[Rfam]
RNA sequence: GGCGAUAAACGCGCGUGUAAUAAGCGGUUCGGACCCGGGGGCGGUACCCGGCGACUCCACCACAAGCAGGCUCAGGCAUACUUCGCCUGUUUCUGACGGGGUCGAAAUAGGAUCGACGGACGUGUAAAGACGAGGCCUUCGCCGGAUUGAGCCCCCUCAGAAGCUCACAUCAACAUAGUUGCAAAUGACAACCAUGCUGAAGGUCAACUGCUCGCAGCGUAG
Numbered sequence: 001g002g003c004g005a006u007a008a009a010c011g012c013g014c015g016u017g018u019a020a021u022a023a024g025c026g027g028u029u030c031g032g033a034c035c036c037g038g039g040g041g042c043g044g045u046a047c048c049c050g051g052c053g054a055c056u057c058c059a060c061c062a063c064a065a066g067c068a069g070g071c072u073c074a075g076g077c078a079u080a081c082u083u084c085g086c087c088u089g090u091u092u093c094u095g096a097c098g099g100g101g102u103c104g105a106a107a108u109a110g111g112a113u114c115g116a117c118g119g120a121c122g123u124g125u126a127a128a129g130a131c132g133a134g135g136c137c138u139u140c141g142c143c144g145g146a147u148u149g150a151g152c153c154c155c156c157u158c159a160g161a162a163g164c165u166c167a168c169a170u171c172a173a174c175a176u177a178g179u180u181g182c183a184a185a186u187g188a189c190a191a192c193c194a195u196g197c198u199g200a201a202g203g204u205c206a207a208c209u210g211c212u213c214g215c216a217g218c219g220u221a222g
Stems, first nucleotide, its partner, number of pairs: 001143005014132003025122002029119003035051005052104007144155002
This 222-nucleotide sequence from Hyphomonas chukchiensis belongs to the Rfam family "permuted transfer-messenger RNA".
About the family: Bacterial tmRNA, also known as 10Sa RNA or SsrA, is named for its dual tRNA and mRNA-like properties. Its role is to liberate the mRNA from a stalled ribosome.
Pairs were carried over by alignment from the consensus structure, which is taken from published work.
NCBI's taxonomy places the organism under Bacteria, Pseudomonadati, Hyphomonadales, Hyphomonadaceae, Hyphomonas.
By type it is a non-coding RNA gene.
The literature on the family includes a 1996 paper in RNA by Williams and Bartel, "Phylogenetic analysis of tmRNA secondary structure".